[Rfam]
Nucleotides: 146
Stems, first nucleotide, its partner, number of pairs: 003144006010137007018129009028119006
Number, partner (000 for none) and nucleotide at each position: 001000u002000a003144u004143u005142a006141a007140a008139a009000u010137u011136u012135u013134u014133a015132u016131c017000a018129a019128u020127u021126u022125c023124u024123a025122u026121u027000a028119u029118u030117a031116a032115a033114a034000a035000c036000u037000g038000g039000u040000a041000u042000g043000g044000c045000u046000g047000a048000c049000a050000a051000a052000a053000a054000u055000a056000a057000c058000u059000a060000c061000a062000c063000g064000g065000u066000g067000a068000c069000a070000u071000g072000u073000g074000g075000c076000a077000u078000a079000c080000c081000a082000c083000a084000u085000g086000u087000a088000u089000c090000u091000c092000a093000u094000g095000u096000u097000g098000a099000u100000c101000u102000a103000u104000a105000g106000g107000g108000a109000u110000u111000u112000a113000u114033u115032u116031u117030u118029a119028a120000c121026a122025g123024u124023a125022g126021a127020a128019a129018u130000g131016g132015a133014u134013g135012a136011a137010a138000u139008u140007u141006u142005u143004a144003a145000c146000a